This 130-nucleotide sequence from Cladonia borealis belongs to the Rfam family "U4 spliceosomal RNA". It scores 100 bits against the family's covariance model. Lineage of the source: Eukaryota > Fungi > Lecanorineae > Cladoniaceae > Cladonia. The family's RNA type in Rfam is spliceosomal small nuclear RNA.
[Rfam]
RNA sequence: AUCUGAGUGCAAGGGCUUUACGCGUAUCAGUGAGGAUUCGUCCGAGAUCGCGUUUUUGCUAGUUGAAAACUAUACUAUGACCACUCUAUAUGGUCUACGGAUCGUAUGGGAAUUUUUGAAAACACCAGUC
Numbered sequence: 001a002u003c004u005g006a007g008u009g010c011a012a013g014g015g016c017u018u019u020a021c022g023c024g025u026a027u028c029a030g031u032g033a034g035g036a037u038u039c040g041u042c043c044g045a046g047a048u049c050g051c052g053u054u055u056u057u058g059c060u061a062g063u064u065g066a067a068a069a070c071u072a073u074a075c076u077a078u079g080a081c082c083a084c085u086c087u088a089u090a091u092g093g094u095c096u097a098c099g100g101a102u103c104g105u106a107u108g109g110g111a112a113u114u115u116u117u118g119a120a121a122a123c124a125c126c127a128g129u130c
Stems, first nucleotide, its partner, number of pairs: 020053005026048003034043003085110011